[Rfam]
The record is a 90-nucleotide RNA sequence from Agathobaculum faecis, which matches "ZMP/ZTP riboswitch aptamer (pfl RNA motif)" in Rfam. The base pairs follow the family's consensus structure, which is taken from published work. A search with the family's covariance model found it, with a score of 62 bits.
RNA sequence: CAGAUUCCCUGCGACUGACGGGCAAGGUGGAGCGUAAACCACCGGGAAGCAGGGGUUCCGCAAUAAAUGCCGACCGUCUGGGCAGUGUCG
Numbered sequence: 001c002a003g004a005u006u007c008c009c010u011g012c013g014a015c016u017g018a019c020g021g022g023c024a025a026g027g028u029g030g031a032g033c034g035u036a037a038a039c040c041a042c043c044g045g046g047a048a049g050c051a052g053g054g055g056u057u058c059c060g061c062a063a064u065a066a067a068u069g070c071c072g073a074c075c076g077u078c079u080g081g082g083c084a085g086u087g088u089c090g
Stems, first nucleotide, its partner, number of pairs: 003058002006055007015046002017078005027042004068084004